[Rfam]
RNA: Bacterial large subunit ribosomal RNA, nucleotides 1912 to 2498
RNA sequence: CCCGCGGUCAGACGGAAAGACCCUAUGAACCUUUACUGCAGCUUUGCAGUGGCCUCAGAAGAGGGCUGUGUAGGAUAGGUGGGAGGCUUCGAAGCGUGGGCGCCAGCCUGCGUGGAGCCAACCUUGAAAUACCACCCUGACCUCGGCUGAUGUCUAACCGCGACCGGUCAGCCCGGUCCGGGACCCUGCAUGGCGGGCAGUUUGACUGGGGCGGUCGCCUCCCAAAUGGUAACGGAGGCGCGCGAUGGUGGGCUCAGGCCGGUCGGACAUCGGCUGCUGAGUGCAAUGGCACAAGCCCGCCUGACUGCGAGAGUGACAGCUCGAGCAGAGACGAAAGUCGGCCAUAGUGAUCCGGUGGUCCCGCGUGGAAGGGCCAUCGCUCAACGGAUAAAAGGUACUCUAGGGAUAACAGGCUGAUCUCCCCCAAGAGUCCACAUCGACGGGGAGGUUUGGCACCUCGAUGUCGGCUCAUCACAUCCUGGGGCUGGAGCAGGUCCCAAGGGUUCGGCUGUUCGCCGAUUAAAGUGGUACGUGAGCUGGGUUUAGAACGUCGUGAGACAGUUCGGUCCCUAUCUGCCGUGGGUGAA
Numbered sequence: 001c002c003c004g005c006g007g008u009c010a011g012a013c014g015g016a017a018a019g020a021c022c023c024u025a026u027g028a029a030c031c032u033u034u035a036c037u038g039c040a041g042c043u044u045u046g047c048a049g050u051g052g053c054c055u056c057a058g059a060a061g062a063g064g065g066c067u068g069u070g071u072a073g074g075a076u077a078g079g080u081g082g083g084a085g086g087c088u089u090c091g092a093a094g095c096g097u098g099g100g101c102g103c104c105a106g107c108c109u110g111c112g113u114g115g116a117g118c119c120a121a122c123c124u125u126g127a128a129a130u131a132c133c134a135c136c137c138u139g140a141c142c143u144c145g146g147c148u149g150a151u152g153u154c155u156a157a158c159c160g161c162g163a164c165c166g167g168u169c170a171g172c173c174c175g176g177u178c179c180g181g182g183a184c185c186c187u188g189c190a191u192g193g194c195g196g197g198c199a200g201u202u203u204g205a206c207u208g209g210g211g212c213g214g215u216c217g218c219c220u221c222c223c224a225a226a227u228g229g230u231a232a233c234g235g236a237g238g239c240g241c242g243c244g245a246u247g248g249u250g251g252g253c254u255c256a257g258g259c260c261g262g263u264c265g266g267a268c269a270u271c272g273g274c275u276g277c278u279g280a281g282u283g284c285a286a287u288g289g290c291a292c293a294a295g296c297c298c299g300c301c302u303g304a305c306u307g308c309g310a311g312a313g314u315g316a317c318a319g320c321u322c323g324a325g326c327a328g329a330g331a332c333g334a335a336a337g338u339c340g341g342c343c344a345u346a347g348u349g350a351u352c353c354g355g356u357g358g359u360c361c362c363g364c365g366u367g368g369a370a371g372g373g374c375c376a377u378c379g380c381u382c383a384a385c386g387g388a389u390a391a392a393a394g395g396u397a398c399u400c401u402a403g404g405g406a407u408a409a410c411a412g413g414c415u416g417a418u419c420u421c422c423c424c425c426a427a428g429a430g431u432c433c434a435c436a437u438c439g440a441c442g443g444g445g446a447g448g449u450u451u452g453g454c455a456c457c458u459c460g461a462u463g464u465c466g467g468c469u470c471a472u473c474a475c476a477u478c479c480u481g482g483g484g485c486u487g488g489a490g491c492a493g494g495u496c497c498c499a500a501g502g503g504u505u506c507g508g509c510u511g512u513u514c515g516c517c518g519a520u521u522a523a524a525g526u527g528g529u530a531c532g533u534g535a536g537c538u539g540g541g542u543u544u545a546g547a548a549c550g551u552c553g554u555g556a557g558a559c560a561g562u563u564c565g566g567u568c569c570c571u572a573u574c575u576g577c578c579g580u581g582g583g584u585g586a587a
Stems, first nucleotide, its partner, number of pairs: 001583008010575003014570002022404004027400002029396005035201004042193002045190004051154003055150004061144004066139001068137001078136005085119003094113008158181003162178006204216004217239006240385001242342002248300006254280002257275006281290002305328004311322003330339003353379007361372002413454003417451001418448007428438002465540001466538004470532001471529005478503002481498006505519005546564004550559003